[Rfam]
RNA sequence: ACGACCUUACUUGAACAGGAUCUGUUCUAUAGGAUCGUACCUCUGUGUCUUUGACUUCUAAGGAGACAGGAUCAUAACCCUGGUGGAUGAAUCAUAGCCAUGCGAUCAGAGCGUGAUUAACGGUUUGGUGAUCCUAGGGUCACCCCAUAGCUGUAGAUGAUCGUUCUCAGCUUGGUCUUACUAAGCUUGGGGUGGUCGCUUGGCUGUCUGACAGGUU
Numbered sequence: 001a002c003g004a005c006c007u008u009a010c011u012u013g014a015a016c017a018g019g020a021u022c023u024g025u026u027c028u029a030u031a032g033g034a035u036c037g038u039a040c041c042u043c044u045g046u047g048u049c050u051u052u053g054a055c056u057u058c059u060a061a062g063g064a065g066a067c068a069g070g071a072u073c074a075u076a077a078c079c080c081u082g083g084u085g086g087a088u089g090a091a092u093c094a095u096a097g098c099c100a101u102g103c104g105a106u107c108a109g110a111g112c113g114u115g116a117u118u119a120a121c122g123g124u125u126u127g128g129u130g131a132u133c134c135u136a137g138g139g140u141c142a143c144c145c146c147a148u149a150g151c152u153g154u155a156g157a158u159g160a161u162c163g164u165u166c167u168c169a170g171c172u173u174g175g176u177c178u179u180a181c182u183a184a185g186c187u188u189g190g191g192g193u194g195g196u197c198g199c200u201u202g203g204c205u206g207u208c209u210g211a212c213a214g215g216u217u
Stems, first nucleotide, its partner, number of pairs: 001038002003035001005033003013027006043069004048064006079215004097204004102199007110165004120154006127144007166190002169187007